[Rfam]
RNA sequence: AGAACCUUUAACACAGUCCCGUGAGGCUGAGAAGGAAAACGGAAAUGAUGACUAUGGUCAUAUUUAUGCCAUUAGUCUAUCUAUGUCUUCGUAAACCCUCUCCCAAAACGGUGAGAGGGUUUUUCGUUU
Numbered sequence: 001a002g003a004a005c006c007u008u009u010a011a012c013a014c015a016g017u018c019c020c021g022u023g024a025g026g027c028u029g030a031g032a033a034g035g036a037a038a039a040c041g042g043a044a045a046u047g048a049u050g051a052c053u054a055u056g057g058u059c060a061u062a063u064u065u066a067u068g069c070c071a072u073u074a075g076u077c078u079a080u081c082u083a084u085g086u087c088u089u090c091g092u093a094a095a096c097c098c099u100c101u102c103c104c105a106a107a108a109c110g111g112u113g114a115g116a117g118g119g120u121u122u123u124u125c126g127u128u129u
Base pairs, nucleotide, nucleotide: 005035006034007033008032009031014029015028016027017026018025051076052075053074054073057070059068060067061066091124093122094121095120096119097118098117099116100115101114102113104111
A member of the RNA family "PyrR binding site" from Metabacillus litoralis, 129 nucleotides long. The family has 41 seed sequences and 1,498 matches in Rfam 15.1. Pairs were carried over by alignment from the consensus structure, which is taken from published work. Rfam links the family to the GO terms pyrimidine nucleobase biosynthetic process and pyrimidine nucleobase transport.